[Rfam]
Nucleotides: 059
Stems, first nucleotide, its partner, number of pairs: 031056002034053008
Number, partner (000 for none) and nucleotide at each position: 001000g002000a003000a004000u005000g006000g007000a008000c009000a010000c011000a012000g013000c014000u015000c016000u017000u018000u019000u020000a021000g022000a023000a024000u025000u026000u027000u028000u029000c030000u031056g032055g033000c034053u035052u036051u037050c038049u039048g040047a041046u042000u043000u044000u045000g046041a047040u048039u049038a050037g051036a052035a053034a054000a055032c056031u057000c058000a059000a
The family of this 59-nucleotide RNA sequence from Mus musculus is "U7 small nuclear RNA". The organism belongs to Mus, within Eukaryota. The match comes from Rfam's covariance-model search (38 bits).